[Rfam]
RNA sequence: CGCCCCGGUGCCGCAGGCGGUCUCCCUCAAGGACCACGAGGAGGAAAGAACCCCACCAAACCCCACCCCUCCCGCCCAGGCCGCCGCCUCACUCACGCGAGUGAACAUCGCCAACUCAGCUGGAUUCGGGAGCCCUUGCCUGCCCUACGCUCAGCGCAACCAACCGCAGACAUGCGACGGCCCUCGCCGGGACUGGCAUCCCAGUGCGAGGGCCUGACCACCGAGGAAGGCUCCAACUUCCUG
Number, nucleotide and partner (000 for none) at each position: 001c000002g000003c000004c000005c000006c000007g222008g221009u220010g219011c000012c000013g000014c000015a000016g076017g075018c074019g073020g000021u000022c000023u000024c000025c000026c000027u000028c000029a000030a000031g000032g000033a000034c000035c000036a000037c000038g000039a000040g000041g000042a000043g000044g000045a000046a000047a000048g000049a000050a000051c000052c000053c000054c000055a000056c000057c000058a000059a000060a000061c000062c000063c000064c000065a000066c000067c000068c000069c000070u000071c000072c000073c019074g018075c017076c016077c000078a000079g000080g000081c000082c000083g000084c000085c000086g000087c000088c000089u104090c103091a102092c101093u100094c099095a000096c000097g000098c000099g094100a093101g092102u091103g090104a089105a000106c000107a000108u000109c000110g000111c000112c000113a000114a000115c000116u000117c000118a000119g155120c154121u153122g152123g151124a000125u000126u000127c000128g000129g000130g000131a000132g000133c000134c000135c000136u000137u000138g000139c000140c000141u000142g000143c000144c000145c000146u000147a000148c000149g000150c000151u123152c122153a121154g120155c119156g000157c000158a000159a000160c000161c000162a000163a000164c000165c000166g000167c000168a000169g000170a000171c000172a000173u000174g000175c000176g000177a000178c000179g214180g213181c212182c211183c210184u000185c208186g207187c206188c000189g202190g201191g200192a199193c000194u000195g000196g000197c000198a000199u192200c191201c190202c189203a000204g000205u000206g187207c186208g185209a000210g183211g182212g181213c180214c179215u000216g000217a000218c000219c010220a009221c008222c007223g000224a000225g241226g240227a239228a238229g237230g000231c000232u000233c000234c000235a000236a000237c229238u228239u227240c226241c225242u000243g000

Rfam assigns this 243-nucleotide RNA sequence from Streptomyces chartreusis to the family "Streptomyces sRNA 4677".
The base pairs follow the family's consensus structure.
Located in the intergenic region between anti-sigma factor SCO4677 gene and a putative regulatory protein gene SCO4676. scr4677 expression requires the SCO4677 activity and scr4677 sRNA itself seem to affect the levels of the SCO4676-associated transcripts.
The literature on the family includes a 2014 paper in PLoS One by Hindra et al., "Complex intra-operonic dynamics mediated by a small RNA in Streptomyces coelicolor".
The family's RNA type in Rfam is small RNA.